[Rfam]
RNA: Bacterial RNase P class A
RNA sequence: CGAGAAGGGGGAAUCAUCGCUGGCCUUUGUAGCAAUACAAAGACGGGAGGAAAGUCCGGACACCACAUGGCAACGUAGCGGCUAACGGCCGUCCAUCGCGAGGUGAGGACAAGUGCAACAGAAAGUAUGUACAGGUAAUGCUGUAGUGAAACCAGGUAAACUCUACGUGGUGCAAGCUCAAAUAGGUAUAGGCGUUUUUUAGCAAUAGAAAACUAGGGGGUGCCACCUCCGAUGCUAUACGGGUAGGGUGCUCGAGGCUUGUGGCAACGCAAGUCCUAGAUGAAUGAUGGUUGAAAACAGGAUCCGGCUUACACCCUUUCUCGGUUU
Dot-bracket structure: ((((((((((((((((((.((.(.((((((......)))))).).))....[[[.[[[[[((((...[[[[.((((((((((.....)))))(((((....)))).)((...((((.............(((((......)))))..........))..)))))))))))))...((((......((((((........................(((((.]]]])))))....)))))).....))))......((((((((....))))))))..........)))))))..........]]]]]]]].).))))))))))....